[Rfam]
RNA sequence: UACCGGUCGCGUGACUGGCGAAUCGUGGGGCACCACAGGGAAGCGCCGACCAUAAUCGAGCCGUUCGCCUGGGCACCUUCA
Numbered sequence: 001u002a003c004c005g006g007u008c009g010c011g012u013g014a015c016u017g018g019c020g021a022a023u024c025g026u027g028g029g030g031c032a033c034c035a036c037a038g039g040g041a042a043g044c045g046c047c048g049a050c051c052a053u054a055a056u057c058g059a060g061c062c063g064u065u066c067g068c069c070u071g072g073g074c075a076c077c078u079u080c081a
Stems, first nucleotide, its partner, number of pairs: 005050001007048001009046004015040002017069005025036004058076001060074003